[Rfam]
Overview:
The family of this 111-nucleotide sequence from Brevibacterium linens is "SAM (S-adenosyl methionine) riboswitch aptamer".

RNA sequence: GUUCGCGAGCUGUGGCCAUCGGUACCUGGCCGGCCACACGGCAACCCGUCAUCGACCGGGUGCCCCAGGGGAAGAACGGGCCCGUGCCGACCGCUCGGGCAAGCUUCGAUC
Numbered sequence: 001g002u003u004c005g006c007g008a009g010c011u012g013u014g015g016c017c018a019u020c021g022g023u024a025c026c027u028g029g030c031c032g033g034c035c036a037c038a039c040g041g042c043a044a045c046c047c048g049u050c051a052u053c054g055a056c057c058g059g060g061u062g063c064c065c066c067a068g069g070g071g072a073a074g075a076a077c078g079g080g081c082c083c084g085u086g087c088c089g090a091c092c093g094c095u096c097g098g099g100c101a102a103g104c105u106u107c108g109a110u111c
Stems, first nucleotide, its partner, number of pairs: 001077004009039001011038006021031002040064003045060003049055002080100005086094002

On this family, see Weinberg et al., RNA 2008: "The aptamer core of SAM-IV riboswitches mimics the ligand-binding site of SAM-I riboswitches". Taxonomically the source falls in Brevibacterium (Bacteria, Actinomycetes, Micrococcales, Brevibacteriaceae). About the family: SAM-IV is a mRNA element that regulates gene expression via direct sensing of S-adenosylmethionine (SAM or AdoMet). The base pairs follow the family's consensus structure, which is taken from published work. It scores 80 bits against the family's covariance model. Its Rfam clan is "SAM clan".